Record summary
Shown here is a 74-nucleotide RNA sequence from Chrysochloris asiatica, a member of the family "U1A polyadenylation inhibition element (PIE)". The source organism's lineage runs through Eukaryota, Chordata, Vertebrata, Amniota and Chrysochloris. By type it is a cis-regulatory element. This family represents the U1A polyadenylation inhibition element (PIE). It scores 63 bits against the family's covariance model.

[Rfam]
RNA sequence: CCACACCGCACUGCACCCAGAGUCUGUCCUCAGACAUUGCUCCUGGCACUGGUAGGCCAGAAUUAAAGUGUUGG
Numbered sequence: 001c002c003a004c005a006c007c008g009c010a011c012u013g014c015a016c017c018c019a020g021a022g023u024c025u026g027u028c029c030u031c032a033g034a035c036a037u038u039g040c041u042c043c044u045g046g047c048a049c050u051g052g053u054a055g056g057c058c059a060g061a062a063u064u065a066a067a068g069u070g071u072u073g074g
Stems, first nucleotide, its partner, number of pairs: 006051001008049001017046004022035005